The family of this 213-nucleotide sequence from Arthrobacter oryzae is "c-di-AMP riboswitch aptamer (ydaO/yuaA leader)".
This family represents a conserved RNA structure found upstream of the ydaO and yuaA genes in Bacillus subtilis and related genes in other bacteria. The ydaO/yuaA element is thought to act as a genetic 'off' switch for the ydaO and yuaA genes in its native state. It is believed that the element may be triggered during osmotic shock leading to activation of ydaO, a predicted amino acid transporter gene, and members of the yuaA-yubG operon which code for KtrA and KtrB K+ transporters.
NCBI's taxonomy places the organism under Bacteria, Bacillati, Actinomycetes, Micrococcales, Arthrobacter.

Nucleotides: 213
Stems, first nucleotide, its partner, number of pairs: 012197002018033003034193006044071002072178003080150006153172004
Number, partner (000 for none) and nucleotide at each position: 001000g002000c003000g004000g005000a006000u007000c008000a009000g010000u011000c012197g013196c014000a015000g016000a017000a018033u019032c020031u021000c022000c023000c024000u025000c026000u027000g028000g029000c030000a031020g032019g033018g034193g035192c036191g037190g038189g039188g040000g041000a042000c043000c044071c045070a046000c047000u048000u049000a050000u051000u052000g053000g054000c055000u056000g057000c058000u059000u060000u061000u062000u063000g064000c065000g066000g067000c068000c069000u070045u071044g072178g073177g074176g075000u076000g077000a078000a079000g080150u081149c082148c083147g084146c085145c086000a087000g088000c089000a090000g091000c092000a093000a094000g095000c096000u097000c098000c099000c100000c101000g102000a103000a104000c105000c106000g107000c108000g109000g110000a111000a112000u113000c114000c115000a116000c117000g118000g119000a120000u121000u122000c123000c124000c125000g126000g127000u128000c129000g130000c131000c132000g133000g134000a135000a136000g137000c138000g139000u140000g141000c142000c143000a144000c145085g146084g147083c148082g149081g150080a151000c152000c153172g154171g155170g156169u157000c158000u159000u160000u161000g162000a163000u164000c165000u166000c167000u168000g169156a170155c171154c172153c173000g174000a175000a176074u177073c178072c179000g180000a181000c182000a183000g184000c185000u186000a187000a188039c189038u190037c191036c192035g193034c194000a195000g196013g197012c198000c199000a200000u201000c202000c203000a204000g205000a206000g207000a208000g209000g210000a211000a212000c213000c